RNA: c-di-GMP-I-GGC riboswitch aptamer
Organism: Candidatus Brocadia sinica
RNA sequence: AACGAUAAAGGCAAACCCUGAGCAAUCAGGGGACGCAAAGUAAAGGGUCUUAUCAGUUGUUUAAACAGUUUAAGCCGUUUAAAUUGUUUAAACGGCUUACGAAGAGAUAGCCUUACUGCCGAAG
Numbered sequence: 001a002a003c004g005a006u007a008a009a010g011g012c013a014a015a016c017c018c019u020g021a022g023c024a025a026u027c028a029g030g031g032g033a034c035g036c037a038a039a040g041u042a043a044a045g046g047g048u049c050u051u052a053u054c055a056g057u058u059g060u061u062u063a064a065a066c067a068g069u070u071u072a073a074g075c076c077g078u079u080u081a082a083a084u085u086g087u088u089u090a091a092a093c094g095g096c097u098u099a100c101g102a103a104g105a106g107a108u109a110g111c112c113u114u115a116c117u118g119c120c121g122a123a124g
Base pairs, nucleotide, nucleotide: 003121004120011036012035016031017030018029019028020027021026034110039117040116041115042114044113045112046111047108048107049106050105051104